Record summary:
This 97-nucleotide RNA from Kroppenstedtia eburnea belongs to the Rfam family "pan motif". The match comes from Rfam's covariance-model search (46 bits). NCBI's taxonomy places the organism under Bacteria, Bacillati, Bacillota, Caryophanales, Kroppenstedtia.
[Rfam]
RNA sequence: GCGGCGGCAUCCUCCGGAGCCGCACGCGCCACCUUUGUUCUUUGUUUGUAUCACCUGAUCUCAAUCUGCUCUGAGCCUUUGGGACGGAGACAGAGGU
Numbered sequence: 001g002c003g004g005c006g007g008c009a010u011c012c013u014c015c016g017g018a019g020c021c022g023c024a025c026g027c028g029c030c031a032c033c034u035u036u037g038u039u040c041u042u043u044g045u046u047u048g049u050a051u052c053a054c055c056u057g058a059u060c061u062c063a064a065u066c067u068g069c070u071c072u073g074a075g076c077c078u079u080u081g082g083g084a085c086g087g088a089g090a091c092a093g094a095g096g097u
Base pairs, nucleotide, nucleotide: 001027002026003025004023005022006021007020008019010018011017066093067092068091069089070088071087072086073085076083077082
Dot-bracket structure: ((((((((.((.....))))))).)))......................................((((((((..((....)).))))).)))....